[Rfam]
RNA sequence: GGGGCAGUAUCGAUCAACCAUCGAACUGCACUCUGAUGUACAAGUAAGCCGCAUUACAGCAUUUUCAAUUGAAUCUUGAACGACUUUGUGGAAAGUGGAUUCUGCUCUGAGCCGAAGGGACCGAGACAGAAGG
Numbered sequence: 001g002g003g004g005c006a007g008u009a010u011c012g013a014u015c016a017a018c019c020a021u022c023g024a025a026c027u028g029c030a031c032u033c034u035g036a037u038g039u040a041c042a043a044g045u046a047a048g049c050c051g052c053a054u055u056a057c058a059g060c061a062u063u064u065u066c067a068a069u070u071g072a073a074u075c076u077u078g079a080a081c082g083a084c085u086u087u088g089u090g091g092a093a094a095g096u097g098g099a100u101u102c103u104g105c106u107c108u109g110a111g112c113c114g115a116a117g118g119g120a121c122c123g124a125g126a127c128a129g130a131a132g133g
Stems, first nucleotide, its partner, number of pairs: 001033003004029005010024005102129003105125003109121001112119002
Record summary: pan motif: a 133-nucleotide RNA from Paenibacillus selenitireducens. Rfam classes the family as a cis-regulatory element. The match comes from Rfam's covariance-model search (37 bits). The source organism's lineage runs through Bacteria, Bacillati, Bacillota, Caryophanales and Paenibacillus.